[Rfam]
RNA sequence: AAAUAGGAAUGCGGGUGCUGGAUGAAGUCCGGCUGAGAUGGCAGCCUUUUGCUGCGGACCGUUAAUCUGAUCCAGGUAAUGCUGGCGUAGAGAAUAUCAUUCGAAUUGCG
Numbered sequence: 001a002a003a004u005a006g007g008a009a010u011g012c013g014g015g016u017g018c019u020g021g022a023u024g025a026a027g028u029c030c031g032g033c034u035g036a037g038a039u040g041g042c043a044g045c046c047u048u049u050u051g052c053u054g055c056g057g058a059c060c061g062u063u064a065a066u067c068u069g070a071u072c073c074a075g076g077u078a079a080u081g082c083u084g085g086c087g088u089a090g091a092g093a094a095u096a097u098c099a100u101u102c103g104a105a106u107u108g109c110g
Stems, first nucleotide, its partner, number of pairs: 006098002009095002011062004016056001017033005041055004066091004072085004
RNA: TPP riboswitch aptamer (THI element)